The record is a 396-nucleotide sequence from Spirosoma validum, which matches "Bacterial RNase P class A" in Rfam. Taxonomically the source falls in Spirosoma (Bacteria, Pseudomonadati, Bacteroidota, Cytophagia). It scores 273 bits against the family's covariance model. It is annotated as a ribozyme.
[Rfam]
RNA sequence: GGUACGAGUCGUCUUAUCGCGCCAGGUUAACCUGGUGAGGAAAGUCCGGGCAGCGUAGGGCACCCUACUUCCUAACGGGAAGGCAGAUAACGGGCGACGGUUAUCUGACAGCCAGUGUCACAGAAAAUAAACCGCUCUGAGCAAUCCGAGUAAGGGUGAAAUGGUAGUGUAAGAGACUACCGCUUGCCAGGCGACUGGCGGGGCAGGAUAAACCUUAGGGGCUGAAAGACCAAAUAAGCGCUGAAUGCGGGGCGGCUCGUCUCCGUUCCGAAGUAAUUCGGACGUCAGCGCGGGUAGGUCGAACGAGGUGAUCGGUGACGAUCAUCCCAGAUAAAUGAUAAGACGCCGGACCGUAAGGCCCGGCGACAGAACCCGGCUUAUAGACUCGUACCGUGU
Numbered sequence: 001g002g003u004a005c006g007a008g009u010c011g012u013c014u015u016a017u018c019g020c021g022c023c024a025g026g027u028u029a030a031c032c033u034g035g036u037g038a039g040g041a042a043a044g045u046c047c048g049g050g051c052a053g054c055g056u057a058g059g060g061c062a063c064c065c066u067a068c069u070u071c072c073u074a075a076c077g078g079g080a081a082g083g084c085a086g087a088u089a090a091c092g093g094g095c096g097a098c099g100g101u102u103a104u105c106u107g108a109c110a111g112c113c114a115g116u117g118u119c120a121c122a123g124a125a126a127a128u129a130a131a132c133c134g135c136u137c138u139g140a141g142c143a144a145u146c147c148g149a150g151u152a153a154g155g156g157u158g159a160a161a162u163g164g165u166a167g168u169g170u171a172a173g174a175g176a177c178u179a180c181c182g183c184u185u186g187c188c189a190g191g192c193g194a195c196u197g198g199c200g201g202g203g204c205a206g207g208a209u210a211a212a213c214c215u216u217a218g219g220g221g222c223u224g225a226a227a228g229a230c231c232a233a234a235u236a237a238g239c240g241c242u243g244a245a246u247g248c249g250g251g252g253c254g255g256c257u258c259g260u261c262u263c264c265g266u267u268c269c270g271a272a273g274u275a276a277u278u279c280g281g282a283c284g285u286c287a288g289c290g291c292g293g294g295u296a297g298g299u300c301g302a303a304c305g306a307g308g309u310g311a312u313c314g315g316u317g318a319c320g321a322u323c324a325u326c327c328c329a330g331a332u333a334a335a336u337g338a339u340a341a342g343a344c345g346c347c348g349g350a351c352c353g354u355a356a357g358g359c360c361c362g363g364c365g366a367c368a369g370a371a372c373c374c375g376g377c378u379u380a381u382a383g384a385c386u387c388g389u390a391c392c393g394u395g396u
Base pairs, nucleotide, nucleotide: 001392002391003390004389005388006387007386008385009384010383011381012343013342014341015340016339017338018337020037021036022035023034024033025032026031042379043378044377046376047375048374049373050372051224052223053222054221060274061273063220064219065218066217067216068082069081070080071079072078083109084107085106086105087104088103089102090101091100110215111214115213116212117209118208119207132155133154134151135150136149137148139146140145163181164180165179166178167177168176182204183202184201185200186199187198188197189196190195228300229299230298231297238291239290240289241288242287243286267282268281269280270279271278307326308325309324310323311322312321313320314319